[Rfam]
RNA: Y RNA
Organism: Prolemur simus
RNA sequence: GGCUGGUCCGAUGGUAGUGGGUUAUCAGAACUUAUUAACAUUAGUGUCACUAAAGUUGGUAUACAACUCCCCACUGCUAAAUUUGACUAGAAAAU
Numbered sequence: 001g002g003c004u005g006g007u008c009c010g011a012u013g014g015u016a017g018u019g020g021g022u023u024a025u026c027a028g029a030a031c032u033u034a035u036u037a038a039c040a041u042u043a044g045u046g047u048c049a050c051u052a053a054a055g056u057u058g059g060u061a062u063a064c065a066a067c068u069c070c071c072c073a074c075u076g077c078u079a080a081a082u083u084u085g086a087c088u089a090g091a092a093a094a095u
Stems, first nucleotide, its partner, number of pairs: 003090006010084002015079001016075006033061003037057002